RNA sequence: CGCUCAUCCAGAGGGGCAGAGGGAUCGGCCCGAAGAAGCCCCGGCAACCCGUCGCACAGCAUCCGCUGGCGACCACGGUGCCAAUUCCGACCCGCGACGCGGGACAGAUGAGGA
Numbered sequence: 001c002g003c004u005c006a007u008c009c010a011g012a013g014g015g016g017c018a019g020a021g022g023g024a025u026c027g028g029c030c031c032g033a034a035g036a037a038g039c040c041c042c043g044g045c046a047a048c049c050c051g052u053c054g055c056a057c058a059g060c061a062u063c064c065g066c067u068g069g070c071g072a073c074c075a076c077g078g079u080g081c082c083a084a085u086u087c088c089g090a091c092c093c094g095c096g097a098c099g100c101g102g103g104a105c106a107g108a109u110g111a112g113g114a
Stems, first nucleotide, its partner, number of pairs: 003112006013042005021031003025090004043082004048078002051073005086106001091103005

A member of the RNA family "SAM riboswitch aptamer (S box leader)" from Saccharothrix violaceirubra, 114 nucleotides long. The match comes from Rfam's covariance-model search (82 bits).